[Rfam]
The record is an 82-nucleotide sequence from Alligator sinensis, which matches "Mammalian CPEB3 ribozyme" in Rfam.
RNA sequence: CUAGUUCAUAUGGAGGCCAUAGCAGAAGCGUUCAUGUCACCACCCCUCUCAGGUAAUACCUGGCAAUAUCUGUGAUUCUGCU
Numbered sequence: 001c002u003a004g005u006u007c008a009u010a011u012g013g014a015g016g017c018c019a020u021a022g023c024a025g026a027a028g029c030g031u032u033c034a035u036g037u038c039a040c041c042a043c044c045c046c047u048c049u050c051a052g053g054u055a056a057u058a059c060c061u062g063g064c065a066a067u068a069u070c071u072g073u074g075a076u077u078c079u080g081c082u
Base pairs, nucleotide, nucleotide: 013046015044016043021082022081023080024079025078026077027076028040030038050072051071052070053069054068055067
Pairs were carried over by alignment from the consensus structure, which is taken from published work. The mammalian CPEB3 ribozyme is a self cleaving RNA located in the second intron of the CPEB3 gene which belongs to a family of genes regulating messenger RNA polyadenylation. It scores 35 bits against the family's covariance model.